[Rfam]
RNA sequence: GGGGCGCAACCGCCGAGUCCGCGAUACGCGGAGCCGGGGACCCAACCUCUCCCAUGGGGUGAAUCGGCAAGGCCCGCCUUCGGGCGGCCAGCCGUAGGGCCGACUUCCAGGCCCGAACCCGUCAGCUAACCCGGUAGGCGGCAUGGAAGCAAGGA
Numbered sequence: 001g002g003g004g005c006g007c008a009a010c011c012g013c014c015g016a017g018u019c020c021g022c023g024a025u026a027c028g029c030g031g032a033g034c035c036g037g038g039g040a041c042c043c044a045a046c047c048u049c050u051c052c053c054a055u056g057g058g059g060u061g062a063a064u065c066g067g068c069a070a071g072g073c074c075c076g077c078c079u080u081c082g083g084g085c086g087g088c089c090a091g092c093c094g095u096a097g098g099g100c101c102g103a104c105u106u107c108c109a110g111g112c113c114c115g116a117a118c119c120c121g122u123c124a125g126c127u128a129a130c131c132c133g134g135u136a137g138g139c140g141g142c143a144u145g146g147a148a149g150c151a152a153g154g155a
Stems, first nucleotide, its partner, number of pairs: 011140004018032005033135006043056002057120003065094004097114004